[Rfam]
RNA sequence: AGCGCCUUUAAAUCAGUCCCGUGAGGCUGGCAAGGUAACGUGAAUCGAGGUUCGCGACUCUUAGGAAGGUAUCCGUAUGUGUAUAUGGAUGAUCUUUUUAUGCGCGCGCGACCACUCAUCUUCUUCAUCUGCGGAUUUCACUCCUUGCCUGUUUUGGGCAAGGAGUUUUUGGUU
Numbered sequence: 001a002g003c004g005c006c007u008u009u010a011a012a013u014c015a016g017u018c019c020c021g022u023g024a025g026g027c028u029g030g031c032a033a034g035g036u037a038a039c040g041u042g043a044a045u046c047g048a049g050g051u052u053c054g055c056g057a058c059u060c061u062u063a064g065g066a067a068g069g070u071a072u073c074c075g076u077a078u079g080u081g082u083a084u085a086u087g088g089a090u091g092a093u094c095u096u097u098u099u100a101u102g103c104g105c106g107c108g109c110g111a112c113c114a115c116u117c118a119u120c121u122u123c124u125u126c127a128u129c130u131g132c133g134g135a136u137u138u139c140a141c142u143c144c145u146u147g148c149c150u151g152u153u154u155u156g157g158g159c160a161a162g163g164a165g166u167u168u169u170u171g172g173u174u
Stems, first nucleotide, its partner, number of pairs: 004036005013030006065096002068093001070091009140166011
RNA: PyrR binding site